Eukaryotic small subunit ribosomal RNA: a 584-nucleotide part of an RNA from Heteramoeba clara. It is one of the family's seed sequences.
RNA sequence: AACCUGGUUGAUCCUGCCAGUAUUAUACGCUCACGUCAAGGACUAAGCCAUGCAUGUGUAAGAACGGGCUUUACGCCCAAUCUGUGGAAGGCUCAUUACACGAGUCAGAAACUCGUUGACUGGUUGCAUUUGGAUAACCCUACCAACUGUCGUGAUAAUACAUAGGCAAGCCUUCGGGCGACCUGGUGUUCACUAUGUGAGGUGGGACAUCAGCAGGGGGCAACCCCUGCAGGAACCGGCUUCGCGGCUGGUCUGUUAAAUGUCUCACUUCCCUAUCAGCUUGUAGGUUGGGUAUGUUCCAAUCCAUGCAGCAACGGGUACGGGGAAUCAGUGUUCGAUUCCGGAGAGGGAGCCUGAGAAAUAGCUACCACAUCUAAGGACGGCAGCAGGCGCGCAAAUUACCCAAUCAUAACAAAUGAUGGAGGUAGCGACCACAAAUAGCAGCCUCCCAGUUUUCUGGGGGGGAGCCAUUAGGCUAGCAAUGGAACCAUGGUAAACGUGUGGAAGAGAAACUAUUAGAGGACAAGUCUUGGUGCCAGCACCCGCGGUAAUUCCAGCUCUAAGAGCUUACACCUACAUUGUUG
Numbered sequence: 001a002a003c004c005u006g007g008u009u010g011a012u013c014c015u016g017c018c019a020g021u022a023u024u025a026u027a028c029g030c031u032c033a034c035g036u037c038a039a040g041g042a043c044u045a046a047g048c049c050a051u052g053c054a055u056g057u058g059u060a061a062g063a064a065c066g067g068g069c070u071u072u073a074c075g076c077c078c079a080a081u082c083u084g085u086g087g088a089a090g091g092c093u094c095a096u097u098a099c100a101c102g103a104g105u106c107a108g109a110a111a112c113u114c115g116u117u118g119a120c121u122g123g124u125u126g127c128a129u130u131u132g133g134a135u136a137a138c139c140c141u142a143c144c145a146a147c148u149g150u151c152g153u154g155a156u157a158a159u160a161c162a163u164a165g166g167c168a169a170g171c172c173u174u175c176g177g178g179c180g181a182c183c184u185g186g187u188g189u190u191c192a193c194u195a196u197g198u199g200a201g202g203u204g205g206g207a208c209a210u211c212a213g214c215a216g217g218g219g220g221c222a223a224c225c226c227c228u229g230c231a232g233g234a235a236c237c238g239g240c241u242u243c244g245c246g247g248c249u250g251g252u253c254u255g256u257u258a259a260a261u262g263u264c265u266c267a268c269u270u271c272c273c274u275a276u277c278a279g280c281u282u283g284u285a286g287g288u289u290g291g292g293u294a295u296g297u298u299c300c301a302a303u304c305c306a307u308g309c310a311g312c313a314a315c316g317g318g319u320a321c322g323g324g325g326a327a328u329c330a331g332u333g334u335u336c337g338a339u340u341c342c343g344g345a346g347a348g349g350g351a352g353c354c355u356g357a358g359a360a361a362u363a364g365c366u367a368c369c370a371c372a373u374c375u376a377a378g379g380a381c382g383g384c385a386g387c388a389g390g391c392g393c394g395c396a397a398a399u400u401a402c403c404c405a406a407u408c409a410u411a412a413c414a415a416a417u418g419a420u421g422g423a424g425g426u427a428g429c430g431a432c433c434a435c436a437a438a439u440a441g442c443a444g445c446c447u448c449c450c451a452g453u454u455u456u457c458u459g460g461g462g463g464g465g466a467g468c469c470a471u472u473a474g475g476c477u478a479g480c481a482a483u484g485g486a487a488c489c490a491u492g493g494u495a496a497a498c499g500u501g502u503g504g505a506a507g508a509g510a511a512a513c514u515a516u517u518a519g520a521g522g523a524c525a526a527g528u529c530u531u532g533g534u535g536c537c538a539g540c541a542c543c544c545g546c547g548g549u550a551a552u553u554c555c556a557g558c559u560c561u562a563a564g565a566g567c568u569u570a571c572a573c574c575u576a577c578a579u580u581g582u583u584g
Stems, first nucleotide, its partner, number of pairs: 004020005024572001026570002029567003035435002040429001041393001047391003051388003056085002061083003068077001092346003102270003107265002111263002117258004129164001131162002138154001140152001142150002171178002185224001187222004198212003236251005272318003279309002284306001286304006321343004325336004348369002351366003371382001373380002399427001401426003407422004442479001444477001445475003452468006488503001490502003516563006529557001531556003539546002
For this family Rfam cites "The comparative RNA web (CRW) site: an online database of comparative sequence and structure information for ribosomal, intron, and other RNAs" (Cannone et al., BMC Bioinformatics, 2002). Rfam links the family to the GO terms ribosome and structural constituent of ribosome.